RNA sequence: UUGCUGUGGCUGGUCAAAAGGAACCAAGGCCGUCUCUCCUGGAGGUUUGGUCCCCUUCAACCAGCUAUAGCAG
Number, nucleotide and partner (000 for none) at each position: 001u000002u000003g071004c070005u069006g068007u000008g066009g065010c064011u063012g062013g061014u060015c000016a000017a057018a056019a000020g053021g052022a051023a000024c050025c049026a048027a047028g046029g000030c044031c000032g000033u000034c000035u000036c000037u000038c000039c000040u000041g000042g000043a000044g030045g000046u028047u027048u026049g025050g024051u022052c021053c020054c000055c000056u018057u017058c000059a000060a014061c013062c012063a011064g010065c009066u008067a000068u006069a005070g004071c003072a000073g000
RNA: mir-133 microRNA precursor family